[Rfam]
RNA sequence: CAGUGGGAGAUAAACCCACCAAGGUAAAAGCCAAAGCCUUGUAGCUAGGUCAGCAAGAGGGAAGGAAACUGAACUCUUGAAGCCUGAUGACAAAGCCAUCAGUUGGAUGGUGAGCGAGUAUCUGGGCCGCAAGGAAC
Numbered sequence: 001c002a003g004u005g006g007g008a009g010a011u012a013a014a015c016c017c018a019c020c021a022a023g024g025u026a027a028a029a030g031c032c033a034a035a036g037c038c039u040u041g042u043a044g045c046u047a048g049g050u051c052a053g054c055a056a057g058a059g060g061g062a063a064g065g066a067a068a069c070u071g072a073a074c075u076c077u078u079g080a081a082g083c084c085u086g087a088u089g090a091c092a093a094a095g096c097c098a099u100c101a102g103u104u105g106g107a108u109g110g111u112g113a114g115c116g117a118g119u120a121u122c123u124g125g126g127c128c129g130c131a132a133g134g135a136a137c
Stems, first nucleotide, its partner, number of pairs: 020041005049088005054079006063070002095111006114130003